[Rfam]
RNA sequence: GGGUUGGGAGAUGAACUAGAGGAAGUCAUAGUCGAAAAAACGAAACAGACGUUGGCUUCAGUUGCAACAGGUUCAAAAUAUACCCA
Numbered sequence: 001g002g003g004u005u006g007g008g009a010g011a012u013g014a015a016c017u018a019g020a021g022g023a024a025g026u027c028a029u030a031g032u033c034g035a036a037a038a039a040a041c042g043a044a045a046c047a048g049a050c051g052u053u054g055g056c057u058u059c060a061g062u063u064g065c066a067a068c069a070g071g072u073u074c075a076a077a078a079u080a081u082a083c084c085c086a
Stems, first nucleotide, its partner, number of pairs: 001074002004071002007068001010065001022059002025056004031050003
RNA: Human rhinovirus internal cis-acting regulatory element (CRE)
Organism: Enterovirus betarhino